[Rfam]
RNA sequence: GGCUGGGCGCAGUGGUUUAUCGAUCUCUUCCCUGCCUUGUGCUGCUGCUGCUCUCAUUCGUUCCUUCGUUGGGAGAUUUUCGUAAUAAAAGGAUCUUGAAAAUACAACGCAGGAAUCGAUCGAUAAACCUCUGCAUCCAGAU
Numbered sequence: 001g002g003c004u005g006g007g008c009g010c011a012g013u014g015g016u017u018u019a020u021c022g023a024u025c026u027c028u029u030c031c032c033u034g035c036c037u038u039g040u041g042c043u044g045c046u047g048c049u050g051c052u053c054u055c056a057u058u059c060g061u062u063c064c065u066u067c068g069u070u071g072g073g074a075g076a077u078u079u080u081c082g083u084a085a086u087a088a089a090a091g092g093a094u095c096u097u098g099a100a101a102a103u104a105c106a107a108c109g110c111a112g113g114a115a116u117c118g119a120u121c122g123a124u125a126a127a128c129c130u131c132u133g134c135a136u137c138c139a140g141a142u
Base pairs, nucleotide, nucleotide: 003140004139005138006137007136009134010133011132012131014129015128016127017126018125019124020123021122022121023120024119025118028115029114030113031112034110035109037107038106039105040104041103
RNA: MIR162_2 microRNA precursor family